[Rfam]
RNA: mir-346 microRNA precursor family
RNA sequence: GGUCUCUGUGUUGGGCGUCUGUCUGCCCGCAUGCCUGCCUCUCUGUUGCUCUGAAGGAGGCAGGGGCUGGGCCUGCAGCUGCCUGGGCAGAGCGG
Numbered sequence: 001g002g003u004c005u006c007u008g009u010g011u012u013g014g015g016c017g018u019c020u021g022u023c024u025g026c027c028c029g030c031a032u033g034c035c036u037g038c039c040u041c042u043c044u045g046u047u048g049c050u051c052u053g054a055a056g057g058a059g060g061c062a063g064g065g066g067c068u069g070g071g072c073c074u075g076c077a078g079c080u081g082c083c084u085g086g087g088c089a090g091a092g093c094g095g
Stems, first nucleotide, its partner, number of pairs: 005091005012085006019078004025072004029067002034064008043056002